[Rfam]
RNA sequence: AGCGGGGAGAAAAUAAAGUAAAAAAGAGUGAGCCGGCGGCGCAAAGUGCGCAGCCGGUGAGU
Numbered sequence: 001a002g003c004g005g006g007g008a009g010a011a012a013a014u015a016a017a018g019u020a021a022a023a024a025a026g027a028g029u030g031a032g033c034c035g036g037c038g039g040c041g042c043a044a045a046g047u048g049c050g051c052a053g054c055c056g057g058u059g060a061g062u
Stems, first nucleotide, its partner, number of pairs: 032058006039051001041049002
Record summary: Rfam assigns this 62-nucleotide RNA sequence from Erwinia sp. OLSSP12 to the family "DnaX ribosomal frameshifting element". By type it is a frameshift element. Lineage of the source: Bacteria > Pseudomonadati > Enterobacterales > Erwiniaceae > Erwinia. For this family Rfam cites "Conservation of the Escherichia coli dnaX programmed ribosomal frameshift signal in Salmonella typhimurium" (Blinkova et al., J Bacteriol, 1997). Rfam describes the family as follows. This family represents a ribosomal frameshifting element found in the mRNA of the dnaX gene in E. coli. The dnaX gene has two encoded products tau and gamma which are produced in a 1:1 ratio. The gamma protein is synthesised due to programmed frameshifting and is shorter than tau. The two products of the dnaX gene are DNA polymerase III subunits.